Shown here is a 142-nucleotide RNA sequence from Gossypium arboreum, a member of the family "MIR7502 microRNA precursor family". The organism belongs to Gossypium, within Eukaryota. It scores 82 bits against the family's covariance model.
RNA sequence: UGUUAAAAAUUUCAUCCAUUUUUAUUAUUAAAACGGGUCCCUAUAUGUCAACAUAAGGUACACGUGGCACCAUGUGUCAUGUUCUAGUUAUUCUAUCAGCCACACCAGCUUUUAACAGUACAAAUGGAUAAAAAUUUUAACA
Numbered sequence: 001u002g003u004u005a006a007a008a009a010u011u012u013c014a015u016c017c018a019u020u021u022u023u024a025u026u027a028u029u030a031a032a033a034c035g036g037g038u039c040c041c042u043a044u045a046u047g048u049c050a051a052c053a054u055a056a057g058g059u060a061c062a063c064g065u066g067g068c069a070c071c072a073u074g075u076g077u078c079a080u081g082u083u084c085u086a087g088u089u090a091u092u093c094u095a096u097c098a099g100c101c102a103c104a105c106c107a108g109c110u111u112u113u114a115a116c117a118g119u120a121c122a123a124a125u126g127g128a129u130a131a132a133a134a135u136u137u138u139a140a141c142a
Base pairs, nucleotide, nucleotide: 002141003140004139005138006137007136008135010133011132012131014129015128016127018125019124020123021122023120024119025118026117028115029114030113031112032111033110